[Rfam]
RNA sequence: CAAGCAUCUAUGAUGUUCAAUUUCCUAAUGUUAUCCUUGCACUUUGAUUGUCAGUGAUGAAAUUAAAGGGGAGAUAAUUACUGAGAUGCCC
Numbered sequence: 001c002a003a004g005c006a007u008c009u010a011u012g013a014u015g016u017u018c019a020a021u022u023u024c025c026u027a028a029u030g031u032u033a034u035c036c037u038u039g040c041a042c043u044u045u046g047a048u049u050g051u052c053a054g055u056g057a058u059g060a061a062a063u064u065a066a067a068g069g070g071g072a073g074a075u076a077a078u079u080a081c082u083g084a085g086a087u088g089c090c091c
Stems, first nucleotide, its partner, number of pairs: 004089005
The record is a 91-nucleotide RNA sequence from Camphora micrantha, which matches "Small nucleolar RNA snoR26" in Rfam. The match comes from Rfam's covariance-model search (70 bits). The base pairs follow the family's consensus structure, which was predicted with WAR. The organism belongs to Camphora, within Eukaryota. Rfam links the family to the GO terms RNA processing and nucleolus.